[Rfam]
RNA sequence: GCCGGGCGCAGUGGCGCGCGCCUGUAAUCCACGUUACCGGGAGGCUGAGGCUGGAGGAGCGCUUGAGUUCGGGGGUUCUGGACUUCAGCGCGCUAUGCUGAGCGGGUGUCCGUACUAAGAUCGGCGUCGAUAUGGUGCUCCUGAGGGAGCUUUGGGCCACCAGGUCGUCUAAGGAGGGGUGAACCGGCCCAGGUCGGAAACGGAGCAGGUCAAAUCCCCCGUGCCGAUCAGUCGUGGGAGCGCACCUGUGAAUAGACGCUGUAGUGCAGCCUGAGCGAGAUAGUGGGACCCAGCCUUUU
Number, nucleotide and partner (000 for none) at each position: 001g045002c044003c043004g023005g022006g021007c020008g019009c018010a000011g000012u000013g000014g000015c000016g000017c000018g009019c008020g007021c006022c005023u004024g000025u000026a000027a000028u042029c041030c040031a000032c000033g000034u000035u000036a000037c000038c000039g000040g030041g029042a028043g003044g002045c001046u000047g297048a296049g295050g294051c293052u292053g291054g290055a000056g000057g000058a000059g000060c285061g284062c283063u282064u000065g000066a000067g276068u275069u274070c273071g272072g271073g270074g000075g000076u000077u000078c269079u268080g267081g000082a265083c264084u263085u000086c261087a260088g259089c258090g257091c000092g000093c255094u254095a253096u252097g000098c250099u000100g000101a000102g249103c248104g247105g246106g245107u244108g243109u242110c238111c237112g000113u236114a235115c234116u000117a232118a000119g229120a228121u227122c226123g225124g224125c223126g222127u221128c167129g166130a165131u164132a000133u162134g161135g160136u159137g158138c000139u156140c155141c154142u000143g152144a151145g150146g000147g000148a000149g000150c145151u144152u143153u000154g141155g140156g139157c000158c137159a136160c135161c134162a133163g000164g131165u130166c129167g128168u174169c173170u000171a000172a000173g169174g168175a000176g219177g218178g217179g216180u000181g000182a000183a000184c000185c000186g211187g210188c209189c208190c000191a000192g000193g000194u203195c202196g201197g000198a000199a000200a000201c196202g195203g194204a000205g000206c000207a000208g189209g188210u187211c186212a000213a000214a000215u000216c179217c178218c177219c176220c000221g127222u126223g125224c124225c123226g122227a121228u120229c119230a000231g000232u117233c000234g115235u114236g113237g111238g110239a000240g000241c000242g109243c108244a107245c106246c105247u104248g103249u102250g098251a000252a096253u095254a094255g093256a000257c090258g089259c088260u087261g086262u000263a084264g083265u082266g000267c080268a079269g078270c073271c072272u071273g070274a069275g068276c067277g000278a000279g000280a000281u000282a063283g062284u061285g060286g000287g000288a000289c000290c054291c053292a052293g051294c050295c049296u048297u047298u000299u000
Shown here is a 299-nucleotide sequence from Electrophorus electricus, a member of the family "Metazoan signal recognition particle RNA".
The base pairs follow the family's consensus structure, which is taken from published work.
On this family, see Wild et al., Curr Opin Struct Biol 2002: "Towards the structure of the mammalian signal recognition particle".
About the family: The signal recognition particle (SRP) is a universally conserved ribonucleoprotein. It is involved in the co-translational targeting of proteins to membranes. The eukaryotic SRP consists of a 300-nucleotide 7S RNA and six proteins: SRPs 72, 68, 54, 19, 14, and 9. Archaeal SRP consists of a 7S RNA and homologues of the eukaryotic SRP19 and SRP54 proteins.